[Rfam]
RNA sequence: CGUCACACCUUCCUACUCGGAUCGUCCGGCACGUUCCUGCCGGUAGAAGGAGACAGAG
Numbered sequence: 001c002g003u004c005a006c007a008c009c010u011u012c013c014u015a016c017u018c019g020g021a022u023c024g025u026c027c028g029g030c031a032c033g034u035u036c037c038u039g040c041c042g043g044u045a046g047a048a049g050g051a052g053a054c055a056g057a058g
Base pairs, nucleotide, nucleotide: 009050010049011048013046014045015044026043027042028041029040030039031038